[Rfam]
RNA sequence: GCCACAUGAUGUUUUCAUUUUGAGAGAUGAGCGCUUUGCACCCUGAUGACCUUAAUCUGUCACCCUUGACUGAUGGCU
Number, nucleotide and partner (000 for none) at each position: 001g077002c076003c075004a074005c000006a000007u000008g000009a000010u000011g000012u000013u000014u000015u000016c000017a000018u000019u000020u000021u000022g000023a000024g000025a000026g000027a000028u000029g000030a000031g041032c000033g039034c038035u000036u000037u000038g034039c033040a000041c031042c000043c000044u000045g000046a000047u000048g000049a000050c000051c000052u000053u000054a000055a000056u000057c000058u000059g000060u000061c000062a000063c000064c000065c000066u000067u000068g000069a000070c000071u000072g000073a000074u004075g003076g002077c001078u000
Rfam assigns this 78-nucleotide RNA from Trichechus manatus to the family "Small nucleolar RNA SNORD83". The family's RNA type in Rfam is C/D-box small nucleolar RNA. The source organism's lineage runs through Eukaryota, Metazoa, Teleostomi, Sirenia and Trichechus manatus. Rfam links the family to the GO terms RNA processing and nucleolus. A search with the family's covariance model found it, with a score of 88 bits.